This 53-nucleotide RNA from Cynara cardunculus belongs to the Rfam family "Plastid-ccsA-ndhD-2 3UTR RNA". NCBI's taxonomy places the organism under Eukaryota, Streptophyta, Pentapetalae, asterids, Cynara cardunculus subsp. cardunculus. The match comes from Rfam's covariance-model search (65 bits). On this family, see Richter et al., Plant Commun 2023: "Retrograde signaling in plants: A critical review focusing on the GUN pathway and beyond". The base pairs follow the family's consensus structure, which was predicted with LocARNA.
[Rfam]
RNA sequence: UGGGCGAGAACCAUGUGAAUCAAAGAGUGUAGUGAUUCACAUGGUUCUCGCAU
Number, nucleotide and partner (000 for none) at each position: 001u000002g000003g000004g051005c050006g049007a048008g047009a046010a045011c044012c043013a042014u041015g040016u039017g038018a037019a036020u035021c034022a033023a000024a000025g000026a000027g000028u000029g000030u000031a000032g000033u022034g021035a020036u019037u018038c017039a016040c015041a014042u013043g012044g011045u010046u009047c008048u007049c006050g005051c004052a000053u000